RNA sequence: UUGCCCAAUGAUUAUAGCAAGACGCGUUAUUAUGAGGACUAAUGCUGGUACUCUUUUCUCCUCCUCCUCCUUUGUCCCUUCCUCUUUCACCUUACCCCUCACUUUCCUUAGGGUAUCCAGCGUCCUAUGAGCGACACUGAGAUAUGAGGGCAA
Numbered sequence: 001u002u003g004c005c006c007a008a009u010g011a012u013u014a015u016a017g018c019a020a021g022a023c024g025c026g027u028u029a030u031u032a033u034g035a036g037g038a039c040u041a042a043u044g045c046u047g048g049u050a051c052u053c054u055u056u057u058c059u060c061c062u063c064c065u066c067c068u069c070c071u072u073u074g075u076c077c078c079u080u081c082c083u084c085u086u087u088c089a090c091c092u093u094a095c096c097c098c099u100c101a102c103u104u105u106c107c108u109u110a111g112g113g114u115a116u117c118c119a120g121c122g123u124c125c126u127a128u129g130a131g132c133g134a135c136a137c138u139g140a141g142a143u144a145u146g147a148g149g150g151c152a153a
Base pairs, nucleotide, nucleotide: 001153002152003151004150005149006148035054036053037052040048
Dot-bracket structure: ((((((............................(((..(.......)...))).............................................................................................))))))